[Rfam]
Annotation
The family of this 176-nucleotide RNA from Mycobacterium avium is "M-box riboswitch aptamer (ykoK leader)". About the family: M-box riboswitch, also know as ykoK leader is described as a metaloregulatory RNA that sense divalent metals and function as a genetic control element of genes related to divalent metal transport in bacteria. It was first reported upstream of the B.subtilis ykoK gene and genes with related functions in other bacteria. It is one of the family's seed sequences.
RNA sequence: CAAGCACCUCGCUAGGUGAGGCGUCUGCACGGACACAGGCCACUGACCUCGAACGUCGAAAGACGCCCAGGGUCAGGACAGCUCCUCCCGGAUUAAGGGUUGAGCCCAAGUGGCUUCCGGCUUUUGACGGCCGGAUACGCCGUGUGGUGCCGAAGCUCUGACGAGAGGGGUGCCGC
Numbered sequence: 001c002a003a004g005c006a007c008c009u010c011g012c013u014a015g016g017u018g019a020g021g022c023g024u025c026u027g028c029a030c031g032g033a034c035a036c037a038g039g040c041c042a043c044u045g046a047c048c049u050c051g052a053a054c055g056u057c058g059a060a061a062g063a064c065g066c067c068c069a070g071g072g073u074c075a076g077g078a079c080a081g082c083u084c085c086u087c088c089c090g091g092a093u094u095a096a097g098g099g100u101u102g103a104g105c106c107c108a109a110g111u112g113g114c115u116u117c118c119g120g121c122u123u124u125u126g127a128c129g130g131c132c133g134g135a136u137a138c139g140c141c142g143u144g145u146g147g148u149g150c151c152g153a154a155g156c157u158c159u160g161a162c163g164a165g166a167g168g169g170g171u172g173c174c175g176c
Stems, first nucleotide, its partner, number of pairs: 005172006011162001013096001015157003020151003025147008039114005045074005054065004081105004087099003116135006

NCBI's taxonomy places the organism under Bacteria, Actinomycetota, Mycobacterium avium complex (MAC), Mycobacterium avium, Mycobacterium avium subsp. paratuberculosis.